[Rfam]
Shown here is a 76-nucleotide sequence from Tropicimonas sp. IMCC6043, a member of the family "Singlet oxygen resistance RNA X". Gene Ontology term of the family: response to photooxidative stress. Pairs were carried over by alignment from the consensus structure. By type it is a small RNA. It scores 47 bits against the family's covariance model. The literature on the family includes a 2009 paper in Mol Microbiol by Berghoff et al., "Photooxidative stress-induced and abundant small RNAs in Rhodobacter sphaeroides". Rfam's curators write: SorX (RSs2461)like SorY is a singlet oxygen induced sRNA that counteracts oxidative stress by targeting mRNA for a transporter in Rhodobacter. It also has an impact on resistance against organic hydroperoxides. It targets SD sequence of potA mRNA via an aSD sequence. The aSD sequence and some neighbouring nucleotides are identical to the one of SorY (targets takP mRNA).
Nucleotides: 076
Stems, first nucleotide, its partner, number of pairs: 009028006050070008
Number, partner (000 for none) and nucleotide at each position: 001000u002000g003000a004000c005000u006000a007000u008000c009028g010027a011026c012025g013024g014023a015000c016000g017000g018000u019000u020000u021000u022000g023014u024013u025012c026011g027010u028009c029000u030000u031000u032000a033000c034000c035000u036000c037000c038000c039000u040000g041000u042000u043000g044000g045000a046000c047000u048000u049000g050070g051069g052068c053067c054066g055065a056064g057063a058000c059000u060000u061000g062000u063057u064056c065055u066054c067053g068052g069051c070050c071000u072000u073000u074000u075000u076000u